The family of this 140-nucleotide RNA from Oryzias sinensis is "U4 spliceosomal RNA". The match comes from Rfam's covariance-model search (111 bits).

RNA sequence: GACUUUGCGCAGUGGCGGUACCGUAGCCAAUGAAGUUUAUCUGAGGCGCGGUUAUUGCUAGUUGAAAACUACUCCCAAUACCCCGCACUGAUGAUGUGAAAUAUCGUCGUCAGAUGCAAUUUUUCCAGGCCGUCCGCGGC
Numbered sequence: 001g002a003c004u005u006u007g008c009g010c011a012g013u014g015g016c017g018g019u020a021c022c023g024u025a026g027c028c029a030a031u032g033a034a035g036u037u038u039a040u041c042u043g044a045g046g047c048g049c050g051g052u053u054a055u056u057g058c059u060a061g062u063u064g065a066a067a068a069c070u071a072c073u074c075c076c077a078a079u080a081c082c083c084c085g086c087a088c089u090g091a092u093g094a095u096g097u098g099a100a101a102u103a104u105c106g107u108c109g110u111c112a113g114a115u116g117c118a119a120u121u122u123u124u125c126c127a128g129g130c131c132g133u134c135c136g137c138g139g140c
Stems, first nucleotide, its partner, number of pairs: 020052005026047003034042002085117003088113009129140004
Dot-bracket structure: ...................(((((.(((.....((.....))..))))))))................................((((((((((((........))))))))).)))...........((((....))))
The family's RNA type in Rfam is spliceosomal small nuclear RNA.